A member of the RNA family "Bacterial small signal recognition particle RNA" from Schaalia zhouxuedongae, 96 nucleotides long.
The literature on the family includes a 2009 paper in RNA Biol by Rosenblad et al., "Kinship in the SRP RNA family".
Pairs were carried over by alignment from the consensus structure, which is taken from published work.
[Rfam]
RNA sequence: CUCGGUCCUCCGCGUGACGGAAUGAUCCGAACCUCCCCAGGGCAGGAAUGCAGCAAGGAUAAGGGUCCGCUUUCGGGUGCGCGGAGGAUCCUUGUU
Number, nucleotide and partner (000 for none) at each position: 001c000002u000003c000004g090005g089006u088007c087008c086009u085010c084011c083012g082013c081014g080015u077016g000017a000018c075019g074020g073021a072022a071023u000024g067025a066026u065027c064028c063029g000030a000031a000032c000033c000034u059035c058036c057037c000038c000039a000040g000041g000042g051043c050044a049045g000046g000047a000048a000049u044050g043051c042052a000053g000054c000055a000056a000057g036058g035059a034060u000061a000062a000063g028064g027065g026066u025067c024068c000069g000070c000071u022072u021073u020074c019075g018076g000077g015078u000079g000080c014081g013082c012083g011084g010085a009086g008087g007088a006089u005090c004091c000092u000093u000094g000095u000096u000
The source organism's lineage runs through Bacteria, Bacillati, Actinomycetota, Actinomycetaceae and Schaalia. Rfam's curators write: The signal recognition particle (SRP) is a universally conserved ribonucleoprotein involved in the co-translational targeting of proteins to membranes. By type it is a non-coding RNA gene.